Annotation: The family of this 117-nucleotide sequence from Mesobacillus campisalis is "ylbH leader". Rfam links the family to the GO term regulation of gene expression. The family's RNA type in Rfam is cis-regulatory leader. On this family, see Barrick et al., Proc Natl Acad Sci U S A 2004: "New RNA motifs suggest an expanded scope for riboswitches in bacterial genetic control". It scores 107 bits against the family's covariance model. From the family's description: This family is a putative regulatory RNA structure that is found upstream of the ylbH gene in B. subtilis and related low GC Gram-positive bacteria. Lineage of the source: Bacteria > Bacilli > Caryophanales > Bacillaceae > Mesobacillus.

RNA sequence: AAAAAGAAAAACCCUGCAUCACAUGCAGGGCCCCUUCUAUAUCCAUAUGGAAAGAAGGCAAAGGGAGAGGAGAAACCGGAGGAAGAACUUAUGGGGAAACGUAAGUCUUCUCCGCGG
Numbered sequence: 001a002a003a004a005a006g007a008a009a010a011a012c013c014c015u016g017c018a019u020c021a022c023a024u025g026c027a028g029g030g031c032c033c034c035u036u037c038u039a040u041a042u043c044c045a046u047a048u049g050g051a052a053a054g055a056a057g058g059c060a061a062a063g064g065g066a067g068a069g070g071a072g073a074a075a076c077c078g079g080a081g082g083a084a085g086a087a088c089u090u091a092u093g094g095g096g097a098a099a100c101g102u103a104a105g106u107c108u109u110c111u112c113c114g115c116g117g
Stems, first nucleotide, its partner, number of pairs: 012030008032065005042051003077114004082110004087106005